[Rfam]
RNA sequence: CCUGUGCGGGGAUUACCCACAACCUGGAUGUGUUACUCGCGAGUGUUUUUUUAUGAGCUUGUUUGAGUGUCAACCUAGGCUAAGAACGACAGAAUGUCUUAAUGCCCUACUCUGUUAGUUGCUUUAAACAACUGAUAGAGGGCUGGUGAUUCUUACAUUA
Numbered sequence: 001c002c003u004g005u006g007c008g009g010g011g012a013u014u015a016c017c018c019a020c021a022a023c024c025u026g027g028a029u030g031u032g033u034u035a036c037u038c039g040c041g042a043g044u045g046u047u048u049u050u051u052u053a054u055g056a057g058c059u060u061g062u063u064u065g066a067g068u069g070u071c072a073a074c075c076u077a078g079g080c081u082a083a084g085a086a087c088g089a090c091a092g093a094a095u096g097u098c099u100u101a102a103u104g105c106c107c108u109a110c111u112c113u114g115u116u117a118g119u120u121g122c123u124u125u126a127a128a129c130a131a132c133u134g135a136u137a138g139a140g141g142g143c144u145g146g147u148g149a150u151u152c153u154u155a156c157a158u159u160a
Base pairs, nucleotide, nucleotide: 021081023079024078025077026076035068036067037066038065039064045058046057047056048055092152093151094150095149108141110140111139112138113137114136115135116134118132119131
This 160-nucleotide sequence from Rhizopus stolonifer belongs to the Rfam family "small nucleolar RNA snR35". The base pairs follow the family's consensus structure, which was predicted with RNAalifold. Its Rfam clan is "SNORA13 clan". The literature on the family includes a 2005 paper in J Biol Chem by Li et al., "Identification and functional analysis of 20 Box H/ACA small nucleolar RNAs (snoRNAs) from Schizosaccharomyces pombe". It is annotated as an H/ACA-box small nucleolar RNA.